[Rfam]
RNA sequence: GUGCGAAGAUCCCAGCGGAGAGGUGGAUCACUCUAUCAAUUGAGAUCUCUCCAACGGUUUGAACUUUUCGCAAAUUGAUAUCCAGACCUAUGAUGCCCUUCAUUUUAUUGUUGGAGCGUCUAGAACCAUCGGAUACAUUCAU
Numbered sequence: 001g002u003g004c005g006a007a008g009a010u011c012c013c014a015g016c017g018g019a020g021a022g023g024u025g026g027a028u029c030a031c032u033c034u035a036u037c038a039a040u041u042g043a044g045a046u047c048u049c050u051c052c053a054a055c056g057g058u059u060u061g062a063a064c065u066u067u068u069c070g071c072a073a074a075u076u077g078a079u080a081u082c083c084a085g086a087c088c089u090a091u092g093a094u095g096c097c098c099u100u101c102a103u104u105u106u107a108u109u110g111u112u113g114g115a116g117c118g119u120c121u122a123g124a125a126c127c128a129u130c131g132g133a134u135a136c137a138u139u140c141a142u
Stems, first nucleotide, its partner, number of pairs: 003071007011020001013018001025051002031044003035040001083132001085130002092120002095117002097114002101110002